[Rfam]
Annotation: The record is an 87-nucleotide RNA sequence from Harpegnathos saltator, which matches "mir-7 microRNA precursor family" in Rfam. Rfam's curators write: This family represents the microRNA (miRNA) precursor mir-7.
RNA sequence: GGAGCGCCGUUGUAUGGAAGACUAGUGAUUUUGUUGUUCUACUUUCGAUGUAACAAGGAAUCACUAAUCAUCCUACAAAGGCGCUCA
Numbered sequence: 001g002g003a004g005c006g007c008c009g010u011u012g013u014a015u016g017g018a019a020g021a022c023u024a025g026u027g028a029u030u031u032u033g034u035u036g037u038u039c040u041a042c043u044u045u046c047g048a049u050g051u052a053a054c055a056a057g058g059a060a061u062c063a064c065u066a067a068u069c070a071u072c073c074u075a076c077a078a079a080g081g082c083g084c085u086c087a
Stems, first nucleotide, its partner, number of pairs: 002086007010078005016072002020069002025064007034056005